A member of the RNA family "Iron response element I" from Lynx pardinus, 35 nucleotides long. Rfam 15.1 lists 6,829 matches to the family in 599 species. The base pairs follow the family's consensus structure, which is taken from published work. Rfam links the family to the GO term response to iron ion. The match comes from Rfam's covariance-model search (34 bits). Lineage of the source: Eukaryota > Craniata > Mammalia > Carnivora > Lynx.
[Rfam]
RNA sequence: CUAUUUCUUGCUCCAACACUGUUUGGAUGGAACAG
Numbered sequence: 001c002u003a004u005u006u007c008u009u010g011c012u013c014c015a016a017c018a019c020u021g022u023u024u025g026g027a028u029g030g031a032a033c034a035g
Stems, first nucleotide, its partner, number of pairs: 001035002004032002007030002010028001012027005017021001